[Rfam]
RNA: Small nucleolar RNA SNORA79
RNA sequence: UGAUGGCUGUUCCUCUCACUGCUUGGAGCCUUAGGCAGUGGGAUUUUGAUCCAUCAUAUAUCAAACCUCACUUGUCUUCACUCAGAGCACCAUGAGGAUGGGUUGGCUAUCCAUAGUGCCUUCUGAUUUUUGUGGAAUCAAACAAUU
Numbered sequence: 001u002g003a004u005g006g007c008u009g010u011u012c013c014u015c016u017c018a019c020u021g022c023u024u025g026g027a028g029c030c031u032u033a034g035g036c037a038g039u040g041g042g043a044u045u046u047u048g049a050u051c052c053a054u055c056a057u058a059u060a061u062c063a064a065a066c067c068u069c070a071c072u073u074g075u076c077u078u079c080a081c082u083c084a085g086a087g088c089a090c091c092a093u094g095a096g097g098a099u100g101g102g103u104u105g106g107c108u109a110u111c112c113a114u115a116g117u118g119c120c121u122u123c124u125g126a127u128u129u130u131u132g133u134g135g136a137a138u139c140a141a142a143c144a145a146u147u
Base pairs, nucleotide, nucleotide: 001056002055003054004053005052006051008049014043015042016041017040018039020037021036022035023034070138072136073135082126083125084124085123086122087119088118089117090116096112097111098110099109100108